Rfam assigns this 137-nucleotide RNA from Alligator mississippiensis to the family "Small nucleolar RNA SNORA9".
Gene Ontology terms of the family: RNA processing and nucleolus.
Rfam classes the family as an H/ACA-box small nucleolar RNA.
A search with the family's covariance model found it, with a score of 113 bits.
ACA9 is a member of the H/ACA class of snoRNA that guide the sites of modification of uridines to pseudouridines.
RNA sequence: CCGCAAGCCGUUCAGCGUGGCUGGGUCUGCCUGUGACCUUGUUCAUUCCUGUAGUGCUUGCAAGAGCAACCCUGAGAUGGUUUGAGGCCUCGUUCUGCUUCUCCUUCGGGACGAGGUUACAAAAAUUUCAGACAUUC
Numbered sequence: 001c002c003g004c005a006a007g008c009c010g011u012u013c014a015g016c017g018u019g020g021c022u023g024g025g026u027c028u029g030c031c032u033g034u035g036a037c038c039u040u041g042u043u044c045a046u047u048c049c050u051g052u053a054g055u056g057c058u059u060g061c062a063a064g065a066g067c068a069a070c071c072c073u074g075a076g077a078u079g080g081u082u083u084g085a086g087g088c089c090u091c092g093u094u095c096u097g098c099u100u101c102u103c104c105u106u107c108g109g110g111a112c113g114a115g116g117u118u119a120c121a122a123a124a125a126u127u128u129c130a131g132a133c134a135u136u137c
Stems, first nucleotide, its partner, number of pairs: 003061006018045003023039005073130005088116006095109003